[Rfam]
RNA sequence: AUACUUAUCUGGAUGGGGAAAACCAUGAUCGUGAAGAUGAUUUUCCCAGGGUGAGGCCCAUCCAUGGCACUCUGGGUGUGCUACCCUUUUUGAUUAUUCCAAAUGUAGGAGACUUGGCUGUGUAAUUUAUGAUAAUAGGGAACUGUGUUCAGUCUCUUCCCUU
Numbered sequence: 001a002u003a004c005u006u007a008u009c010u011g012g013a014u015g016g017g018g019a020a021a022a023c024c025a026u027g028a029u030c031g032u033g034a035a036g037a038u039g040a041u042u043u044u045c046c047c048a049g050g051g052u053g054a055g056g057c058c059c060a061u062c063c064a065u066g067g068c069a070c071u072c073u074g075g076g077u078g079u080g081c082u083a084c085c086c087u088u089u090u091u092g093a094u095u096a097u098u099c100c101a102a103a104u105g106u107a108g109g110a111g112a113c114u115u116g117g118c119u120g121u122g123u124a125a126u127u128u129a130u131g132a133u134a135a136u137a138g139g140g141a142a143c144u145g146u147g148u149u150c151a152g153u154c155u156c157u158u159c160c161c162u163u
Stems, first nucleotide, its partner, number of pairs: 012121001015118001016047007024039003048089004053085001055082003059078005091116003094112001095110001098108001137162006145154001
U1 spliceosomal RNA: a 163-nucleotide RNA from Vulpes vulpes. By type it is a spliceosomal small nuclear RNA. The organism belongs to Vulpes, within Eukaryota.